[Rfam]
RNA sequence: GUGAUGUGAUAUACUGAGUAGGGGGCCUGGAGAAUAGCUCUUCUGUUUAUAACACACCCAACAGGCAUUUUGGGUCACUGUGAUGAGGGGCACAAAAUGUGUGGCCUCCCUGUGAACAAAUGUCCUAAAUGU
Numbered sequence: 001g002u003g004a005u006g007u008g009a010u011a012u013a014c015u016g017a018g019u020a021g022g023g024g025g026c027c028u029g030g031a032g033a034a035u036a037g038c039u040c041u042u043c044u045g046u047u048u049a050u051a052a053c054a055c056a057c058c059c060a061a062c063a064g065g066c067a068u069u070u071u072g073g074g075u076c077a078c079u080g081u082g083a084u085g086a087g088g089g090g091c092a093c094a095a096a097a098u099g100u101g102u103g104g105c106c107u108c109c110c111u112g113u114g115a116a117c118a119a120a121u122g123u124c125c126u127a128a129a130u131g132u
Stems, first nucleotide, its partner, number of pairs: 003058001005056004016048009025038002072125004079118003084114002087107003091103004
RNA: Small nucleolar RNA SNORA11
Organism: Tupaia belangeri